Annotation:
Shown here is a 93-nucleotide sequence from Bifidobacterium psychraerophilum, a member of the family "Fluoride riboswitch aptamer (crcB RNA motif)". The source organism's lineage runs through Bacteria, Actinomycetota, Actinomycetes, Bifidobacteriales and Bifidobacterium. The family's consensus secondary structure is taken from published work.
RNA sequence: GGCGUGGUUGGGUAUGAAGUUACCCUAGGCACCAAAAUGAAACACAGUACAUACGCCUGAACCGCUCAACGAGCUGAUGACUUCUGCAGAGAU
Numbered sequence: 001g002g003c004g005u006g007g008u009u010g011g012g013u014a015u016g017a018a019g020u021u022a023c024c025c026u027a028g029g030c031a032c033c034a035a036a037a038u039g040a041a042a043c044a045c046a047g048u049a050c051a052u053a054c055g056c057c058u059g060a061a062c063c064g065c066u067c068a069a070c071g072a073g074c075u076g077a078u079g080a081c082u083u084c085u086g087c088a089g090a091g092a093u
Base pairs, nucleotide, nucleotide: 010025011024012023013022016084017083018082019081020080021079064074065073066072